[Rfam]
Purine riboswitch aptamer: a 98-nucleotide RNA from Paenibacillus whitsoniae.
RNA sequence: UAUGUCAAAAAAAAUAAUGUUCGUAUAACCCUGAUAAUCCGGUUCAGGGGCUCUACUGGGAACCUAAAAUCCUAACUACGAACACGAUAUAAGCCUCG
Dot-bracket structure: .................((((((((...((((((.........)))))).......(((((........)))))..))))))))..............

Rfam's curators write: Riboswitches are metabolite binding domains within certain messenger RNAs that serve as precision sensors for their corresponding targets. Its Rfam clan is "Purine riboswitches".